Rfam assigns this 142-nucleotide RNA sequence from Parabacteroides sp. PFB2-22 to the family "Bacteroidete tryptophan peptide leader RNA".
Nucleotides: 142
Base pairs, nucleotide, nucleotide: 036104037103038102040100041099042098043097044096045095049093050092051091056087058084059083060082063078065076066075067074
Number, partner (000 for none) and nucleotide at each position: 001000u002000c003000g004000a005000a006000a007000u008000a009000a010000c011000a012000g013000a014000a015000a016000a017000a018000g019000a020000a021000a022000u023000g024000a025000a026000u027000u028000u029000u030000a031000g032000u033000u034000u035000a036104g037103u038102a039000a040100a041099u042098a043097c044096a045095u046000a047000u048000u049093g050092g051091u052000g053000g054000c055000g056087c057000u058084u059083c060082c061000u062000a063078c064000u065076a066075c067074u068000c069000c070000a071000u072000a073000a074067a075066g076065u077000c078063g079000u080000a081000a082060g083059g084058a085000a086000u087056g088000c089000a090000g091051a092050c093049c094000u095045g096044u097043g098042u099041a100040u101000a102038u103037a104036c105000u106000a107000g108000u109000a110000c111000a112000u113000a114000a115000a116000g117000a118000a119000a120000g121000g122000a123000u124000a125000u126000u127000u128000u129000c130000a131000g132000a133000a134000a135000g136000g137000c138000c139000u140000g141000u142000c